A member of the RNA family "ATPC RNA motif" from Prochlorococcus marinus, 93 nucleotides long. The sequence is in the family's curated seed alignment. The family's consensus secondary structure is taken from published work. NCBI's taxonomy places the organism under Bacteria, Bacillati, Prochlorococcaceae, Prochlorococcus, Prochlorococcus marinus subsp. marinus. On this family, see Weinberg et al., Nucleic Acids Res 2007: "Identification of 22 candidate structured RNAs in bacteria using the CMfinder comparative genomics pipeline". By type it is a non-coding RNA gene.
RNA sequence: UCAGAGAUAAAUUAUUUUUCUGGCAAAACUCUUGCGAAUAGCUUCGAUUUUCUUCGAACGCAUCUUAAUUAACUAUGAGAUGUACCCCUCGCA
Number, nucleotide and partner (000 for none) at each position: 001u000002c000003a017004g016005a015006g000007a000008u000009a000010a000011a000012u000013u000014a000015u005016u004017u003018u000019u000020c000021u000022g000023g000024c000025a000026a000027a000028a000029c000030u000031c000032u000033u093034g092035c091036g000037a000038a000039u000040a000041g000042c000043u058044u057045c056046g055047a054048u000049u000050u000051u000052c000053u000054u047055c046056g045057a044058a043059c000060g000061c082062a081063u080064c079065u078066u077067a076068a000069u000070u000071a000072a000073c000074u000075a000076u067077g066078a065079g064080a063081u062082g061083u000084a000085c000086c000087c000088c000089u000090c000091g035092c034093a033